[Rfam]
RNA sequence: CUCCGAAAUGGCAAACCGGCUGAAAGACCGGGACGCAAAGUGACGGACCUAAAGCAUCUGAAAAAGAUGCCAAGGUGGCCGCACCGCCGAAG
Number, nucleotide and partner (000 for none) at each position: 001c092002u000003c089004c000005g000006a000007a000008a000009u000010g000011g036012c035013a000014a000015a000016c031017c030018g029019g028020c000021u026022g000023a000024a000025a000026g021027a000028c019029c018030g017031g016032g000033a000034c078035g012036c011037a000038a000039a000040g084041u083042g082043a000044c081045g080046g079047a076048c075049c074050u000051a000052a000053a000054g000055c000056a000057u000058c000059u000060g000061a000062a000063a000064a000065a000066g000067a000068u000069g000070c000071c000072a000073a000074g049075g048076u047077g000078g034079c046080c045081g044082c042083a041084c040085c000086g000087c000088c000089g003090a000091a000092g001
Notes
The record is a 92-nucleotide RNA from Acidaminobacter hydrogenoformans, which matches "c-di-GMP-I-GGC riboswitch aptamer" in Rfam. The match comes from Rfam's covariance-model search (63 bits). Its family is annotated with cyclic-di-GMP binding in the Gene Ontology.